[Rfam]
RNA sequence: AUCAGGGGCCCUGGCAAGGGCCUUCGGAUCGCGCUCUAACCUUACCGACCUGAGCCGAUUCGUGUCUGUACCGCCCACAAGGUGUGUUUGACGAGGUUGCGACUGGAACGAAGUUGUCCCGAGGGACGGAAGCGUAAUAGGUAGCCCGGCAACACACUGAUGAUCGUACAAAGGCCCACGACGCCCGAAUGCGCCCGCCAGUUCGCCCUUACCUGCUC
Number, nucleotide and partner (000 for none) at each position: 001a000002u000003c000004a000005g024006g023007g022008g021009c020010c019011c018012u017013g000014g000015c000016a000017a012018g011019g010020g009021c008022c007023u006024u005025c000026g000027g000028a059029u058030c057031g056032c000033g000034c000035u054036c000037u052038a000039a000040c000041c047042u000043u000044a000045c000046c000047g041048a000049c000050c000051u000052g037053a000054g035055c000056c031057g030058a029059u028060u000061c148062g147063u000064g146065u000066c144067u143068g142069u000070a000071c000072c000073g083074c082075c081076c000077a000078c000079a000080a000081g075082g074083u073084g000085u139086g138087u000088u000089u136090g000091a135092c134093g133094a000095g000096g000097u000098u000099g000100c000101g000102a000103c000104u000105g000106g000107a000108a000109c000110g000111a000112a000113g000114u000115u000116g000117u000118c000119c129120c128121g000122a000123g000124g000125g000126a000127c000128g120129g119130a000131a000132g000133c093134g092135u091136a089137a000138u086139a085140g000141g000142u068143a067144g066145c000146c064147c062148g061149g000150c000151a000152a000153c000154a161155c000156a000157c000158u000159g000160a000161u154162g000163a000164u000165c193166g192167u191168a190169c000170a000171a000172a000173g185174g184175c183176c000177c000178a000179c000180g000181a000182c000183g175184c174185c173186c000187g000188a000189a000190u168191g167192c166193g165194c000195c000196c000197g000198c000199c000200a000201g212202u211203u000204c000205g000206c000207c000208c000209u000210u000211a202212c201213c000214u000215g000216c000217u000218c000
sRNA regulator of biofilms A: a 218-nucleotide RNA from Pseudomonas fluorescens. On this family, see Taylor et al., PLoS One 2017: "A novel small RNA is important for biofilm formation and pathogenicity in Pseudomonas aeruginosa". The match comes from Rfam's covariance-model search (99 bits).